Rfam assigns this 61-nucleotide RNA from Nomascus leucogenys to the family "U7 small nuclear RNA".
The organism belongs to Nomascus, within Eukaryota.
The literature on the family includes a 1994 paper in Nucleic Acids Res by Spycher et al., "3' end processing of mouse histone pre-mRNA: evidence for additional base-pairing between U7 snRNA and pre-mRNA".
The base pairs follow the family's consensus structure, which was predicted with PFOLD.
RNA sequence: CAGUGUUACAGCUUUUUUAGAAUUUGUCCAGCAGGCUUUCUUGUUUUUGCUGGAAGCCUCC
Numbered sequence: 001c002a003g004u005g006u007u008a009c010a011g012c013u014u015u016u017u018u019a020g021a022a023u024u025u026g027u028c029c030a031g032c033a034g035g036c037u038u039u040c041u042u043g044u045u046u047u048u049g050c051u052g053g054a055a056g057c058c059u060c061c
Stems, first nucleotide, its partner, number of pairs: 034058005040053002043050002